[Rfam]
RNA sequence: AAGUAAGGUAGAGGUUGCGCGACUCAGGAGUAAACUGCAGGAUAUGUCCGGCAUAGCAGAAUGCAGCAGAAAGGGGGGAGCGCCGAAAGGAGCCGUGUCCGGAAAGCUGCUUCUUGGGCGCAGGAUGAAUAAUUCUGUGACUGUCAUCGCAAGAUGGUGCGCUCCUGAAGGA
Dot-bracket structure: ......((.((.....((((..(((.........(((((......................)))))........)))..))))...(((((((.((.(.....).)).)))))))((.((((((((.....)))))))).)).(((((....)))))....)).))......
Record summary: Lysine riboswitch aptamer: a 172-nucleotide RNA sequence from Cuneatibacter caecimuris. The organism belongs to Cuneatibacter, within Bacteria. It scores 94 bits against the family's covariance model. Its family is annotated with lysine biosynthetic process in the Gene Ontology.